[Rfam]
RNA: Bacterial large subunit ribosomal RNA, nucleotides 2097 to 2683
RNA sequence: CCCGCGGCAAGACGGAAAGACCCCGUGAACCUUUACUACAGCUUGGCAGUGACAUUCGGGACAGCAUGUGUAGGAUAGGUGGGAGACUUUGAAGCUGGCACGCUAGUGUCGGUGGAGUCGCCCUUGAAAUACCACCCUUGUUCUUCUGGAUGUCUAACCUCGGCCCGUAAUCCGGGUCAGGGACACUGCCUGGUGGGUAGUUUGACUGGGGCGGUCGCCUCCCAAAGUGUAACGGAGGCGCGCGAAGGUUCCCUCAGGCUGAUUGGAAACCAGCCGAAGAGUGCAAAGGCAUAAGGGAGCUUGACUGCAAGACACACAGGUCGAGCAGGUGCGAAAGCAGGUCUUAGUGAUCCGGCGGUUCUGUAUGGAAGGGCCGUCGCUCAACGGAUAAAAGGUACUCCGGGGAUAACAGGCUUAUCUCCCCCAAGAGUUCACAUCGACGGGGAGGUUUGGCACCUCGAUGUCGGCUCAUCACAUCCUGGGGCUGAAGUCGGUCCCAAGGGUUUGGCUGUUCGCCAAUUAAAGUGGUACGCGAGCUGGGUUUAAAACGUCGUGAGACAGUUUGGUCCCUAUCUGCCGUGGGCGCA
Dot-bracket structure: ((((((((.(((.((......((((.(((((((.((((...((.((((..(((((((((((.((((.(.........(((((..(((......((((((((....))))))))...)))............)))))).)))).)))))))))))...(((.((((((.....))))))))).....)))).))....))))..((((.....))))((((((...........))))))(.((....((((((((.(((((.........)))))...))((......))....))))))....((((..(((......)))..)))).(((....))).))..........(((((((.((........))))))))).....)......)))))..))))))........(((.((((((((...((.......))...)))))))..))))..........(((((((((((..((.((((((......))))))...)).(((((.....))))).....)))))..)..)))).).....(((((((....))).))))....))..)))))))))))....